[Rfam]
RNA sequence: AAGAGGAAGCACCUAUGCAUCGCAGAUGCAUAUUAAAAUGGUGCUGACGAAAUGCCGCCGAGUGUAAGCGAGGGGGCGAUACCCAUA
Numbered sequence: 001a002a003g004a005g006g007a008a009g010c011a012c013c014u015a016u017g018c019a020u021c022g023c024a025g026a027u028g029c030a031u032a033u034u035a036a037a038a039u040g041g042u043g044c045u046g047a048c049g050a051a052a053u054g055c056c057g058c059c060g061a062g063u064g065u066a067a068g069c070g071a072g073g074g075g076g077c078g079a080u081a082c083c084c085a086u087a
Base pairs, nucleotide, nucleotide: 008045009044010043011042012041013040015031016030017029018028019027020026054077055076056075058073059072062069063068

Shown here is an 87-nucleotide RNA, a member of the family "GA-cis RNA".